A member of the RNA family "Bacterial RNase P class B" from Melissococcus plutonius, 369 nucleotides long. Rfam links the family to the GO terms dimeric ribonuclease P complex, ribonuclease P activity and tRNA processing. It scores 340 bits against the family's covariance model. Its Rfam clan is "RNaseP clan".
[Rfam]
RNA sequence: AUUUUCGGGUGAUCGCGGUCUAUAUUAUAUAGGCUGAGGAAAGUCCAUGCUCGCACAGGCUGAGAUGUCUGUAGUGUUCGUGCUUAGCAAAACCAUAAGCUAAGGUAUCUCUAAAGAGAUAACGGCAGAGAAAAUGGCUAAGGGAAACUAUGCCAAAGUACUCUAUAAAGUGUCACAGUGACGAAGCGACUUGGAAACAAGAUCGGUGGAACGCGAUAAACCCCUCGAGCGAGCAACCCAAACAAUGGUAGGGGCACUCUUCUAAAGGAAAUGAACGAGUAGAAGAGACAGAAAUUUUUCUGUAGAUAGAUGAUGACCCUCUAAAUUCUUUUCCUGAGAGAAUCUAGAGACAGAACAUGGCUUAUAGAA
Number, nucleotide and partner (000 for none) at each position: 001a000002u000003u000004u369005u368006c367007g365008g318009g317010u316011g000012a314013u313014c312015g000016c036017g035018g034019u033020c032021u031022a000023u000024a000025u000026u000027a000028u000029a000030u000031a021032g020033g019034c018035u017036g016037a000038g000039g000040a000041a363042a362043g361044u000045c360046c359047a358048u357049g356050c233051u232052c231053g230054c229055a072056c071057a070058g069059g068060c067061u000062g000063a000064g000065a000066u000067g060068u059069c058070u057071g056072u055073a000074g000075u000076g000077u000078u228079c227080g226081u000082g224083c104084u103085u102086a101087g100088c099089a000090a000091a000092a000093c000094c000095a000096u000097a000098a000099g088100c087101u086102a085103a084104g083105g123106u121107a120108u119109c118110u117111c116112u000113a000114a000115a000116g111117a110118g109119a108120u107121a106122a000123c105124g223125g222126c000127a164128g163129a162130g161131a000132a000133a000134a000135u155136g154137g153138c152139u000140a000141a000142g149143g148144g000145a000146a000147a000148c143149u142150a000151u000152g138153c137154c136155a135156a000157a000158g000159u000160a000161c130162u129163c128164u127165a000166u000167a000168a000169a000170g221171u220172g217173u216174c215175a000176c000177a000178g000179u000180g000181a000182c000183g000184a000185a000186g000187c205188g204189a203190c201191u200192u199193g198194g000195a000196a000197a000198c193199a192200a191201g190202a000203u189204c188205g187206g000207u000208g000209g000210a000211a000212c000213g000214c000215g174216a173217u172218a000219a000220a171221c170222c125223c124224c082225u000226c080227g079228a078229g054230c053231g052232a051233g050234c000235a000236a000237c253238c252239c251240a000241a000242a000243c000244a000245a000246u000247g000248g000249u000250a000251g239252g238253g237254g000255c000256a000257c287258u286259c285260u284261u283262c282263u281264a000265a000266a000267g000268g000269a000270a000271a000272u000273g000274a000275a000276c000277g000278a000279g000280u000281a263282g262283a261284a260285g259286a258287g257288a303289c302290a301291g300292a299293a298294a000295u000296u000297u000298u293299u292300c291301u290302g289303u288304a000305g000306a000307u000308a000309g000310a000311u000312g014313a013314u012315g000316a010317c009318c008319c000320u348321c347322u346323a345324a000325a343326u342327u341328c340329u339330u338331u337332u000333c000334c000335u000336g000337a331338g330339a329340g328341a327342a326343u325344c000345u323346a322347g321348a320349g000350a000351c000352a000353g000354a000355a000356c049357a048358u047359g046360g045361c043362u042363u041364a000365u007366a000367g006368a005369a004